About this RNA: tRNA: an 82-nucleotide RNA from Coemansia sp. RSA 2050. Gene Ontology term of the family: triplet codon-amino acid adaptor activity. Rfam classes the family as a transfer RNA.
[Rfam]
RNA sequence: ACGGAUGUGGUGAAAUGGGAGACACGAUAUUUUUAGAUGAUAUUAGUUUUAUACUAUGUGGGUUCAAAUCCCACCAUCCGUA
Numbered sequence: 001a002c003g004g005a006u007g008u009g010g011u012g013a014a015a016u017g018g019g020a021g022a023c024a025c026g027a028u029a030u031u032u033u034u035a036g037a038u039g040a041u042a043u044u045a046g047u048u049u050u051a052u053a054c055u056a057u058g059u060g061g062g063u064u065c066a067a068a069u070c071c072c073a074c075c076a077u078c079c080g081u082a
Stems, first nucleotide, its partner, number of pairs: 001081007010025003027043005058074005